[Rfam]
RNA sequence: AAAGAAGACCCUGUUGAGCUUGACUCUAGUUUGGCUGUGUGAAGGGACACGAGAGGCGUAGCAUAGGUGGGAGCCGCGAGGCGACCGUGAAAUACCACUACUCUUGUCGUUCCUUUACUUAUUCGGUGAGACGGGGACCGGCGCGCAAGCGCCCAGGUUCUGGAGCGAAGCUCGCCGCCCUGGUGGCGGCGGGCGACCCGAUCCGACGACACUGUCAGGCGGGGAGUUUGACUGGGGCGGUACAUCUGUCAAAUGGUAACGCAGGUGUCCUAAGGUGGGCUCAGCGAGGACGGAAACCUCGCGUAGAGCAAAAGGGCAAAAGCCCACUUGAUCUUGAUUUUCAGUACGAAUACGGACCGUGAAAGCGCGGCCUAUCGAUCCUUUUGACCAGUUGAGAGUUUCAAGCAAGAGGUGUCAGAAAAGUUACCACAGGGAUAACUGGCUUGUGGCAGCCAAGCGUUCAUAGCGACGUUGCUUUUUGAUCCUUCGAUGUCGGCUCUUCCUAUCAUUGCGAAGCAGAAUUCGCAAAGCGUUGGAUUGUUCACCCACUAACAGGGAACGUGAGCUGGGUUUAGACCGUCGUGAGACAGGUUAGUUUUA
Numbered sequence: 001a002a003a004g005a006a007g008a009c010c011c012u013g014u015u016g017a018g019c020u021u022g023a024c025u026c027u028a029g030u031u032u033g034g035c036u037g038u039g040u041g042a043a044g045g046g047a048c049a050c051g052a053g054a055g056g057c058g059u060a061g062c063a064u065a066g067g068u069g070g071g072a073g074c075c076g077c078g079a080g081g082c083g084a085c086c087g088u089g090a091a092a093u094a095c096c097a098c099u100a101c102u103c104u105u106g107u108c109g110u111u112c113c114u115u116u117a118c119u120u121a122u123u124c125g126g127u128g129a130g131a132c133g134g135g136g137a138c139c140g141g142c143g144c145g146c147a148a149g150c151g152c153c154c155a156g157g158u159u160c161u162g163g164a165g166c167g168a169a170g171c172u173c174g175c176c177g178c179c180c181u182g183g184u185g186g187c188g189g190c191g192g193g194c195g196a197c198c199c200g201a202u203c204c205g206a207c208g209a210c211a212c213u214g215u216c217a218g219g220c221g222g223g224g225a226g227u228u229u230g231a232c233u234g235g236g237g238c239g240g241u242a243c244a245u246c247u248g249u250c251a252a253a254u255g256g257u258a259a260c261g262c263a264g265g266u267g268u269c270c271u272a273a274g275g276u277g278g279g280c281u282c283a284g285c286g287a288g289g290a291c292g293g294a295a296a297c298c299u300c301g302c303g304u305a306g307a308g309c310a311a312a313a314g315g316g317c318a319a320a321a322g323c324c325c326a327c328u329u330g331a332u333c334u335u336g337a338u339u340u341u342c343a344g345u346a347c348g349a350a351u352a353c354g355g356a357c358c359g360u361g362a363a364a365g366c367g368c369g370g371c372c373u374a375u376c377g378a379u380c381c382u383u384u385u386g387a388c389c390a391g392u393u394g395a396g397a398g399u400u401u402c403a404a405g406c407a408a409g410a411g412g413u414g415u416c417a418g419a420a421a422a423g424u425u426a427c428c429a430c431a432g433g434g435a436u437a438a439c440u441g442g443c444u445u446g447u448g449g450c451a452g453c454c455a456a457g458c459g460u461u462c463a464u465a466g467c468g469a470c471g472u473u474g475c476u477u478u479u480u481g482a483u484c485c486u487u488c489g490a491u492g493u494c495g496g497c498u499c500u501u502c503c504u505a506u507c508a509u510u511g512c513g514a515a516g517c518a519g520a521a522u523u524c525g526c527a528a529a530g531c532g533u534u535g536g537a538u539u540g541u542u543c544a545c546c547c548a549c550u551a552a553c554a555g556g557g558a559a560c561g562u563g564a565g566c567u568g569g570g571u572u573u574a575g576a577c578c579g580u581c582g583u584g585a586g587a588c589a590g591g592u593u594a595g596u597u598u599u600a
Base pairs, nucleotide, nucleotide: 002599003598010433011432012431013430015429016428017425018424019423020422021421023227024226025225026224030219031218032217033216034215035214039118040117041116042115043114044113045112046111047110048109049107050106051105052104053103054102055101066099067098068097069096070095073082074081123206124205125204126203132200133199134198135197140153141152142151143150144149170194171193172192173191174190175189176188177187178186230243231241232240233239244266245265246264247263248262249261269370270369275327276326277325278324279323280322281307282306284302285301286300287299288298289297308317309316332356333355334354337351338350339349340348358367359366360365381411382410383409384408385407386406392404393403394402442483444481446480448476449475450474451473452472453471457467458466494569495567496566497565498564499561500558501557502556503555504554507532510527511526512525513524514523515522534548535547536546538544575593576592577591578590579588580587581586
Eukaryotic large subunit ribosomal RNA: a 600-nucleotide part of an RNA from Dreissena polymorpha. Lineage of the source: Eukaryota > Eumetazoa > Lophotrochozoa > Bivalvia > Dreissena.